[Rfam]
RNA: Purine riboswitch aptamer
RNA sequence: UUAAAAUAAAAUAUUCGCACUCAUAUAUACUUAGAAAUAGGGUCUAAGUGUUUCUACCAGGCAACCGUAAAUUGCUGGGCUAUGGGUGUUUAUUGAGCUAAU
Numbered sequence: 001u002u003a004a005a006a007u008a009a010a011a012u013a014u015u016c017g018c019a020c021u022c023a024u025a026u027a028u029a030c031u032u033a034g035a036a037a038u039a040g041g042g043u044c045u046a047a048g049u050g051u052u053u054c055u056a057c058c059a060g061g062c063a064a065c066c067g068u069a070a071a072u073u074g075c076u077g078g079g080c081u082a083u084g085g086g087u088g089u090u091u092a093u094u095g096a097g098c099u100a101a102u
Stems, first nucleotide, its partner, number of pairs: 018088008029049007058078001060076005